[Rfam]
RNA sequence: GCUCAGAGCACAUACUUCUUUAUGUACCCAUAUGAACAUACAAUGCUAUGGAAUGUAAAGAAGUAUGUAUUUUUGGC
Numbered sequence: 001g002c003u004c005a006g007a008g009c010a011c012a013u014a015c016u017u018c019u020u021u022a023u024g025u026a027c028c029c030a031u032a033u034g035a036a037c038a039u040a041c042a043a044u045g046c047u048a049u050g051g052a053a054u055g056u057a058a059a060g061a062a063g064u065a066u067g068u069a070u071u072u073u074u075g076g077c
Stems, first nucleotide, its partner, number of pairs: 007071002010068016028051005
RNA: mir-1 microRNA precursor family